The record is a 130-nucleotide sequence from Catagonus wagneri, which matches "Small nucleolar RNA SNORA33" in Rfam. Pairs were carried over by alignment from the consensus structure, which was predicted with PFOLD. ACA33 is a member of the H/ACA class of snoRNA that guide the sites of modification of uridines to pseudouridines. Rfam links the family to the GO terms nucleolus and RNA processing. It scores 130 bits against the family's covariance model. By type it is an H/ACA-box small nucleolar RNA.

RNA sequence: AAGCCAGUCAAUGAAUUUGCUUACCUGAAUGUGUUUAUACAGAAAUUUAGUAAACGCUGGCCAAAGGAAAGCCAUGUUACGAGGCUUAAAGACACUGAAGUCUUUAAGGUCCCUGAAAAUGGCAACAAGA
Numbered sequence: 001a002a003g004c005c006a007g008u009c010a011a012u013g014a015a016u017u018u019g020c021u022u023a024c025c026u027g028a029a030u031g032u033g034u035u036u037a038u039a040c041a042g043a044a045a046u047u048u049a050g051u052a053a054a055c056g057c058u059g060g061c062c063a064a065a066g067g068a069a070a071g072c073c074a075u076g077u078u079a080c081g082a083g084g085c086u087u088a089a090a091g092a093c094a095c096u097g098a099a100g101u102c103u104u105u106a107a108g109g110u111c112c113c114u115g116a117a118a119a120u121g122g123c124a125a126c127a128a129g130a
Base pairs, nucleotide, nucleotide: 003061004060005059006058007057016043017042018041019040071123072122073121074120083110085108086107087106088105089104091102092101093100